Rfam assigns this 91-nucleotide RNA from Chelydra serpentina to the family "Small nucleolar RNA SNORD35". Pairs were carried over by alignment from the consensus structure, which was predicted with PFOLD. Rfam 15.1 lists 1,842 matches to the family in 634 species.
[Rfam]
RNA sequence: GGCAAAUGAUGCUAUUCUCACGAUGGUCUUCCAAGUCUCAUGGUGAAGGGACUCUGACGACACUGCCAAAUGGCUUUGCUGAUGCCUGGCA
Numbered sequence: 001g002g003c004a005a006a007u008g009a010u011g012c013u014a015u016u017c018u019c020a021c022g023a024u025g026g027u028c029u030u031c032c033a034a035g036u037c038u039c040a041u042g043g044u045g046a047a048g049g050g051a052c053u054c055u056g057a058c059g060a061c062a063c064u065g066c067c068a069a070a071u072g073g074c075u076u077u078g079c080u081g082a083u084g085c086c087u088g089g090c091a
Stems, first nucleotide, its partner, number of pairs: 001086004
A search with the family's covariance model found it, with a score of 75 bits.
From the family's description: U35 is a C/D box snoRNA located in intron 6 of ribosomal protein L13A and intron 3 of ribosomal protein S11 in humans and at homologous positions in mouse and chicken ribosomal protein genes.
Lineage of the source: Eukaryota > Testudinata > Cryptodira > Americhelydia > Chelydra.
Its family is annotated with RNA processing and nucleolus in the Gene Ontology.